[Rfam]
RNA sequence: GACCGUUGCAAGUUCCCGAAAGGAUUCAUUUGAAAAUCAAGUGAAGAUGCCUUGUAACCGAAAAAUUAUUUUAGGGGGAAUCAUCGUG
Number, nucleotide and partner (000 for none) at each position: 001g000002a000003c000004c000005g000006u000007u000008g000009c000010a000011a000012g000013u080014u079015c078016c077017c076018g000019a000020a053021a052022g051023g050024a000025u045026u044027c043028a042029u041030u040031u039032g000033a000034a000035a000036a000037u000038c000039a031040a030041g029042u028043g027044a026045a025046g000047a000048u000049g000050c023051c022052u021053u020054g000055u000056a000057a000058c075059c074060g000061a000062a000063a000064a000065a000066u000067u000068a000069u000070u000071u000072u000073a000074g059075g058076g017077g016078g015079a014080a013081u000082c000083a000084u000085c000086g000087u000088g000
The family of this 88-nucleotide sequence from Tetragenococcus halophilus is "SAM-III riboswitch aptamer (SMK box)".
Its family is annotated with regulation of translational initiation and methionine adenosyltransferase activity in the Gene Ontology.
A reference for the family is Fuchs et al. (2007), "S-adenosylmethionine directly inhibits binding of 30S ribosomal subunits to the SMK box translational riboswitch RNA", Proc Natl Acad Sci U S A.
NCBI's taxonomy places the organism under Bacteria, Bacillota, Bacilli, Lactobacillales, Tetragenococcus halophilus.